[Rfam]
RNA: MIR7504 microRNA precursor family
RNA sequence: AAUAGUUUAAUGCCAUAUCAGCACUUUCAUCCUGAAUUUCAGCGUUUAAAUAAAUCAAAUCUAAAUGAAAAUCCUGAAAUUCAGAAUGAAAUUACUGAUGUGGCAUUACACUAUU
Numbered sequence: 001a002a003u004a005g006u007u008u009a010a011u012g013c014c015a016u017a018u019c020a021g022c023a024c025u026u027u028c029a030u031c032c033u034g035a036a037u038u039u040c041a042g043c044g045u046u047u048a049a050a051u052a053a054a055u056c057a058a059a060u061c062u063a064a065a066u067g068a069a070a071a072u073c074c075u076g077a078a079a080u081u082c083a084g085a086a087u088g089a090a091a092u093u094a095c096u097g098a099u100g101u102g103g104c105a106u107u108a109c110a111c112u113a114u115u
Stems, first nucleotide, its partner, number of pairs: 001115006008108014023093001025091003029087002032084008041075002045071003
Dot-bracket structure: ((((((.((((((((((((((.(.(((.((.((((((((.((..(((.....................)))..)).)))))))).)).))).).)))))))))))))).))))))